RNA sequence: UGGAGAAGUCAAUGAUGGUUUUACCCAAAAUGUCUGAACCUGUCUGAAGCAUCUCAGUGAUGUAAUCUUUGUGUGUUUCUGAGACUUCUCUAAGU
Numbered sequence: 001u002g003g004a005g006a007a008g009u010c011a012a013u014g015a016u017g018g019u020u021u022u023a024c025c026c027a028a029a030a031u032g033u034c035u036g037a038a039c040c041u042g043u044c045u046g047a048a049g050c051a052u053c054u055c056a057g058u059g060a061u062g063u064a065a066u067c068u069u070u071g072u073g074u075g076u077u078u079c080u081g082a083g084a085c086u087u088c089u090c091u092a093a094g095u
Base pairs, nucleotide, nucleotide: 004089005088006087007086008085009084010083
Shown here is a 95-nucleotide RNA sequence from Ictidomys tridecemlineatus, a member of the family "Small nucleolar RNA SNORD91 family".
Pairs were carried over by alignment from the consensus structure.
On this family, see Huttenhofer et al., EMBO J 2001: "RNomics: an experimental approach that identifies 201 candidates for novel, small, non-messenger RNAs in mouse".
The match comes from Rfam's covariance-model search (108 bits).